[Rfam]
RNA sequence: GUUGAGGAGAAUGUCGUCUGGUUCGAGACCAUUCAUUUCGAAGGGUCUCACGACUUCGUUCAAAAUGAUCUCGGACCAGGCUUCAUUCCCCCUAAC
Number, nucleotide and partner (000 for none) at each position: 001g096002u095003u094004g093005a000006g091007g090008a000009g088010a087011a086012u085013g084014u000015c000016g081017u080018c079019u078020g077021g076022u000023u000024c073025g072026a071027g000028a000029c000030c000031a000032u000033u000034c000035a000036u000037u000038u000039c000040g000041a000042a000043g000044g000045g000046u000047c000048u000049c000050a000051c000052g000053a000054c000055u000056u000057c000058g000059u000060u000061c000062a000063a000064a000065a000066u000067g000068a000069u000070c000071u026072c025073g024074g000075a000076c021077c020078a019079g018080g017081c016082u000083u000084c013085a012086u011087u010088c009089c000090c007091c006092c000093u004094a003095a002096c001

mir-166 microRNA precursor family: a 96-nucleotide sequence from Hibiscus trionum. Rfam describes the family as follows. This family represents the plant microRNA (miRNA) precursor mir-166. Pairs were carried over by alignment from the consensus structure, which was predicted with PFOLD. Taxonomically the source falls in Hibiscus (Eukaryota, Viridiplantae, Streptophytina, eudicotyledons). It scores 74 bits against the family's covariance model. Rfam links the family to the GO terms RISC complex and miRNA-mediated post-transcriptional gene silencing.